RNA: Manganese Mn2+ riboswitch aptamer (yybP-ykoY)
RNA sequence: UAUCUACUCAAAGGGGAGUAGCUUUUAGGUUCAUACCUAAAACAAAGUCGUCAGUUCAUGGUCUUAGUACCAUCGGCUUUGUUGGCACGAUAAAAGUGCUU
Numbered sequence: 001u002a003u004c005u006a007c008u009c010a011a012a013g014g015g016g017a018g019u020a021g022c023u024u025u026u027a028g029g030u031u032c033a034u035a036c037c038u039a040a041a042a043c044a045a046a047g048u049c050g051u052c053a054g055u056u057c058a059u060g061g062u063c064u065u066a067g068u069a070c071c072a073u074c075g076g077c078u079u080u081g082u083u084g085g086c087a088c089g090a091u092a093a094a095a096g097u098g099c100u101u
Stems, first nucleotide, its partner, number of pairs: 026039003041083010058073005